RNA sequence: UUGAGUCUUCCAUGCUUGUCUCUCGGGGCCACAAAACGAGUUCCUGGUAACUCAACUGAUAAUGCCCUGGGCGAAAGUCCCCGGGCCUAGGAUAGAAAGUAUCAAGGUGUAAAAAGUGUGCACAAAACACCCACCACCCCUGUGGUGGGUGGUGCAUUCGCCUAUAUUCUGCGGAAUUUCGCCUGGCGUAUGGAUGAAGAGGAUUUUAUCCGAAUCCUUACGCGCCAGGUUGUCUGCGGAAAUCUGCCAGAGUAAUCUUAGAUAUGGACGAGUUGGUAGGACUCGGCGGGUGGUGUUCACACACUUUCUCGUCUGAGAAACCGCCUACACAGAAUGGGGCUUACAUUGGGAAACUCG
Numbered sequence: 001u002u003g004a005g006u007c008u009u010c011c012a013u014g015c016u017u018g019u020c021u022c023u024c025g026g027g028g029c030c031a032c033a034a035a036a037c038g039a040g041u042u043c044c045u046g047g048u049a050a051c052u053c054a055a056c057u058g059a060u061a062a063u064g065c066c067c068u069g070g071g072c073g074a075a076a077g078u079c080c081c082c083g084g085g086c087c088u089a090g091g092a093u094a095g096a097a098a099g100u101a102u103c104a105a106g107g108u109g110u111a112a113a114a115a116g117u118g119u120g121c122a123c124a125a126a127a128c129a130c131c132c133a134c135c136a137c138c139c140c141u142g143u144g145g146u147g148g149g150u151g152g153u154g155c156a157u158u159c160g161c162c163u164a165u166a167u168u169c170u171g172c173g174g175a176a177u178u179u180c181g182c183c184u185g186g187c188g189u190a191u192g193g194a195u196g197a198a199g200a201g202g203a204u205u206u207u208a209u210c211c212g213a214a215u216c217c218u219u220a221c222g223c224g225c226c227a228g229g230u231u232g233u234c235u236g237c238g239g240a241a242a243u244c245u246g247c248c249a250g251a252g253u254a255a256u257c258u259u260a261g262a263u264a265u266g267g268a269c270g271a272g273u274u275g276g277u278a279g280g281a282c283u284c285g286g287c288g289g290g291u292g293g294u295g296u297u298c299a300c301a302c303a304c305u306u307u308c309u310c311g312u313c314u315g316a317g318a319a320a321c322c323g324c325c326u327a328c329a330c331a332g333a334a335u336g337g338g339g340c341u342u343a344c345a346u347u348g349g350g351a352a353a354c355u356c357g
Stems, first nucleotide, its partner, number of pairs: 002357005008351005015272006023071001024069006038053005075342003079339004091103004105163005167240003178229001180228001184224001188223002191220001192217004202210003275326002279322002

This 357-nucleotide sequence from Drosophila melanogaster belongs to the Rfam family "RNase MRP". By type it is a ribozyme. Gene Ontology terms of the family: ribonuclease MRP complex, ribonuclease MRP activity and rRNA processing. The family's consensus secondary structure is taken from published work. Rfam's curators put it in the seed alignment. The literature on the family includes a 2006 paper in Nucleic Acids Res by Rosenblad et al., "Inventory and analysis of the protein subunits of the ribonucleases P and MRP provides further evidence of homology between the yeast and human enzymes".